[Rfam]
RNA sequence: UGUUAAAGUUUUCAUCUAUUUUUACUGUUAAAAACUGGUAUUUGUAUGCGAGAAUGAGAUACACUUGGCAUGCCACAUGUAAUUGUUUAAUUAUUCUGUCAGUCACGUCAGUUUUUAAUAGUAGAAAUGGAUGAAAAUUUUAAUA
Numbered sequence: 001u002g003u004u005a006a007a008g009u010u011u012u013c014a015u016c017u018a019u020u021u022u023u024a025c026u027g028u029u030a031a032a033a034a035c036u037g038g039u040a041u042u043u044g045u046a047u048g049c050g051a052g053a054a055u056g057a058g059a060u061a062c063a064c065u066u067g068g069c070a071u072g073c074c075a076c077a078u079g080u081a082a083u084u085g086u087u088u089a090a091u092u093a094u095u096c097u098g099u100c101a102g103u104c105a106c107g108u109c110a111g112u113u114u115u116u117a118a119u120a121g122u123a124g125a126a127a128u129g130g131a132u133g134a135a136a137a138u139u140u141u142a143a144u145a
Stems, first nucleotide, its partner, number of pairs: 002144015018128009028118006
A member of the RNA family "MIR7502 microRNA precursor family" from Gossypium gossypioides, 145 nucleotides long. It scores 89 bits against the family's covariance model. The family's consensus secondary structure was predicted with RNAalifold. Rfam 15.1 lists 74,505 matches to the family in 24 species. Taxonomically the source falls in Gossypium (Eukaryota, Euphyllophyta, Spermatophyta, Malvoideae).